Background
Shown here is a 48-nucleotide RNA sequence from Paracoccus amoyensis, a member of the family "Guanidine-II riboswitch aptamer (mini-ykkC)". Pairs were carried over by alignment from the consensus structure, which is taken from published work. A search with the family's covariance model found it, with a score of 37 bits.
RNA sequence: ACAAGAGGACGACCUCUCCUUCAUGGAAAAACCGCCGGGACGGCCCGG
Numbered sequence: 001a002c003a004a005g006a007g008g009a010c011g012a013c014c015u016c017u018c019c020u021u022c023a024u025g026g027a028a029a030a031a032c033c034g035c036c037g038g039g040a041c042g043g044c045c046c047g048g
Stems, first nucleotide, its partner, number of pairs: 001020001004017005035048005
NCBI's taxonomy places the organism under Bacteria, Alphaproteobacteria, Rhodobacterales, Paracoccaceae, Paracoccus.
Rfam describes the family as follows. Simpler in structure and has fewer highly conserved nucleotide positions than the ykkC-yxkD leader. Despite this each of its two stem-loop structures directly bind free guanidine. Therefore, mini-ykkC RNA motif represents a distinct class of guanidine-sensing RNAs. Its crystal structure was also determined.